[Rfam]
RNA sequence: AAUGUGGUUAAUGAUGCAUAUUCUUUUUUCCCCAUCUUAUCGACAAUGGUGAAAACCAGUUGAAAAUAAGCCAACAAUGACUGAAACCACAUC
Number, nucleotide and partner (000 for none) at each position: 001a000002a092003u091004g090005u089006g088007g087008u086009u085010a000011a000012u000013g000014a000015u000016g000017c000018a000019u000020a000021u000022u000023c000024u000025u000026u000027u000028u000029u000030c000031c000032c000033c000034a000035u000036c000037u000038u000039a000040u000041c000042g000043a000044c000045a000046a000047u000048g000049g000050u000051g000052a000053a000054a000055a000056c000057c000058a000059g000060u000061u000062g000063a000064a000065a000066a000067u000068a000069a000070g000071c000072c000073a000074a000075c000076a000077a000078u000079g000080a000081c000082u000083g000084a000085a009086a008087c007088c006089a005090c004091a003092u002093c000